Pseudomonas sRNA P9: a 74-nucleotide RNA from Pseudomonas aeruginosa.
The base pairs follow the family's consensus structure, which was predicted with RNAalifold.
Lineage of the source: Bacteria > Pseudomonadati > Pseudomonadota > Gammaproteobacteria > Pseudomonas aeruginosa.
From the family's description: This small RNA (sRNA) was computationally identified in the genome of the opportunistic pathogen Pseudomonas aeruginosa and its expression verified by northern blot analysis. P9 appears to be conserved in several Pseudomonas species in addition to Bordetella spp. In both Pseudomonas and Bordetella spp P9 appears to be located upstream of a predicted threonine dehydratase gene. P9 has a predicted Rho independent terminator at the 3' end but the function of P9 is unknown.
For this family Rfam cites "Identification of 17 Pseudomonas aeruginosa sRNAs and prediction of sRNA-encoding genes in 10 diverse pathogens using the bioinformatic tool sRNAPredict2" (Livny et al., Nucleic Acids Res, 2006).
RNA sequence: AGCAUUAUUACCGCCAUUCCAGCUAUGGCGGGUUAGCCAGCGUCCACUCCGAACCCGCCCUCGAGGCGGGUUCU
Numbered sequence: 001a002g003c004a005u006u007a008u009u010a011c012c013g014c015c016a017u018u019c020c021a022g023c024u025a026u027g028g029c030g031g032g033u034u035a036g037c038c039a040g041c042g043u044c045c046a047c048u049c050c051g052a053a054c055c056c057g058c059c060c061u062c063g064a065g066g067c068g069g070g071u072u073c074u
Stems, first nucleotide, its partner, number of pairs: 011031007051073009